[Rfam]
Rfam assigns this 389-nucleotide RNA from Sphaerisporangium melleum to the family "Bacterial RNase P class A". By type it is a ribozyme. Rfam's curators write: Ribonuclease P (RNase P) is a ubiquitous endoribonuclease, found in archaea, bacteria and eukarya as well as chloroplasts and mitochondria. The match comes from Rfam's covariance-model search (292 bits). Taxonomically the source falls in Sphaerisporangium (Bacteria, Bacillati, Actinomycetes, Streptosporangiaceae).
RNA sequence: CGAGUCGGCCGGGCGACCGCGUCGGGGCUCCGGCCCCGCCGAGGAAGGUCCGGGCUCCACAGGGCAGGGUGGUCGGUAACGCCGACCCGGGGUGACCCGCGGGAAAGUGCCACAGAAAGCAGACCGCCUCCCCUCGCGGGAGGUAAGGGUGAAACGGUGGUGUAAGAGACCACCAGCGCCCACGGUGACGUGGGCGGCUCGGUAAACCCCACCUGGAGCAAGGUCAAGAAGGGGACCUCCCCGGAGGUCUCCGCGCGCGGCGUUCGAGGGUGACCCGCCCGAGUCGCGCGGGUAGACCGCUUGAGGCCGCCGGCAACGGCGGCCCUAGAUGGAUGGUCGCCCCUUUGCGCAGCAAAGGACAGAACCCGGCCUACAGGCCGACUCGCCCG
Numbered sequence: 001c002g003a004g005u006c007g008g009c010c011g012g013g014c015g016a017c018c019g020c021g022u023c024g025g026g027g028c029u030c031c032g033g034c035c036c037c038g039c040c041g042a043g044g045a046a047g048g049u050c051c052g053g054g055c056u057c058c059a060c061a062g063g064g065c066a067g068g069g070u071g072g073u074c075g076g077u078a079a080c081g082c083c084g085a086c087c088c089g090g091g092g093u094g095a096c097c098c099g100c101g102g103g104a105a106a107g108u109g110c111c112a113c114a115g116a117a118a119g120c121a122g123a124c125c126g127c128c129u130c131c132c133c134u135c136g137c138g139g140g141a142g143g144u145a146a147g148g149g150u151g152a153a154a155c156g157g158u159g160g161u162g163u164a165a166g167a168g169a170c171c172a173c174c175a176g177c178g179c180c181c182a183c184g185g186u187g188a189c190g191u192g193g194g195c196g197g198c199u200c201g202g203u204a205a206a207c208c209c210c211a212c213c214u215g216g217a218g219c220a221a222g223g224u225c226a227a228g229a230a231g232g233g234g235a236c237c238u239c240c241c242c243g244g245a246g247g248u249c250u251c252c253g254c255g256c257g258c259g260g261c262g263u264u265c266g267a268g269g270g271u272g273a274c275c276c277g278c279c280c281g282a283g284u285c286g287c288g289c290g291g292g293u294a295g296a297c298c299g300c301u302u303g304a305g306g307c308c309g310c311c312g313g314c315a316a317c318g319g320c321g322g323c324c325c326u327a328g329a330u331g332g333a334u335g336g337u338c339g340c341c342c343c344u345u346u347g348c349g350c351a352g353c354a355a356a357g358g359a360c361a362g363a364a365c366c367c368g369g370c371c372u373a374c375a376g377g378c379c380g381a382c383u384c385g386c387c388c389g
Stems, first nucleotide, its partner, number of pairs: 001385010011374001012341007020041002023038006046372003050369005055218004062276003067214005072086005087101001088099004102209002107207002109203003124148002126144007156174006176198001177196008222298004232287001234285003268280004305324008